A member of the RNA family "Plastid-psbA-4 3UTR RNA" from Melianthus villosus, 63 nucleotides long. NCBI's taxonomy places the organism under Eukaryota, Streptophytina, Euphyllophyta, Pentapetalae, Melianthus. It is one of the family's seed sequences. Pairs were carried over by alignment from the consensus structure, which was predicted with LocARNA. Plastid psbA-4 is a non-coding RNA (ncRNA) present in plastids. It was identified in inverted repeat sequences in the 3 prime untranslate region (3UTR) of photosystem II quinone-binding protein (psbA). On this family, see Richter et al., Plant Commun 2023: "Retrograde signaling in plants: A critical review focusing on the GUN pathway and beyond".
[Rfam]
RNA sequence: GAAAGUAAAGGAGCAAUACCCCAAUUUCUUGUUUUAUCAAGAAGGUUCGUAUUGCUCCUUUUU
Numbered sequence: 001g002a003a004a005g006u007a008a009a010g011g012a013g014c015a016a017u018a019c020c021c022c023a024a025u026u027u028c029u030u031g032u033u034u035u036a037u038c039a040a041g042a043a044g045g046u047u048c049g050u051a052u053u054g055c056u057c058c059u060u061u062u063u
Stems, first nucleotide, its partner, number of pairs: 007061012023046001026043006